[Rfam]
Shown here is a 108-nucleotide RNA sequence from Protea cynaroides, a member of the family "Plastid-psbA-1 3UTR RNA". Taxonomically the source falls in Protea (Eukaryota, Tracheophyta, Euphyllophyta, Proteales). Pairs were carried over by alignment from the consensus structure, which was predicted with LocARNA. Plastid psbA-1 is a non-coding RNA (ncRNA) present in plastids.
RNA sequence: UUGAAGCUCCAUCUAUAAAUGGAUAAGACUUAGGUUUUAGUGUAUACGAGUUAUUGAAGGAGCAAUACCGCAUUUCUUCUUUUAUCAAGAGGUUGGUAUUGCUCCUUC
Numbered sequence: 001u002u003g004a005a006g007c008u009c010c011a012u013c014u015a016u017a018a019a020u021g022g023a024u025a026a027g028a029c030u031u032a033g034g035u036u037u038u039a040g041u042g043u044a045u046a047c048g049a050g051u052u053a054u055u056g057a058a059g060g061a062g063c064a065a066u067a068c069c070g071c072a073u074u075u076c077u078u079c080u081u082u083u084a085u086c087a088a089g090a091g092g093u094u095g096g097u098a099u100u101g102c103u104c105c106u107u108c
Stems, first nucleotide, its partner, number of pairs: 008023005056108013070094001072093001074091005